[Rfam]
RNA sequence: GCAGGAGAGGUUCUAGCGCACCCUCUAUAAAAAACUAAGGAACG
Numbered sequence: 001g002c003a004g005g006a007g008a009g010g011u012u013c014u015a016g017c018g019c020a021c022c023c024u025c026u027a028u029a030a031a032a033a034a035c036u037a038a039g040g041a042a043c044g
Stems, first nucleotide, its partner, number of pairs: 006026005014037002
This 44-nucleotide RNA from Brevibacillus fulvus belongs to the Rfam family "PreQ1 (pre queuosine) riboswitch aptamer". Gene Ontology term of the family: queuosine biosynthetic process. Rfam describes the family as follows. This family is a bacterial riboswitch that binds to the metabolite preQ1, an intermediate in the biosynthesis of the modified nucleoside queuosine from GTP. One example of this riboswitch is located in the leader of the Bacillus subtilis ykvJKLM (queCDEF) operon which encodes four genes necessary for queuosine production. PreQ1 binding to the riboswitch aptamer is thought to induce premature transcription termination within the leader to down-regulate expression of these genes.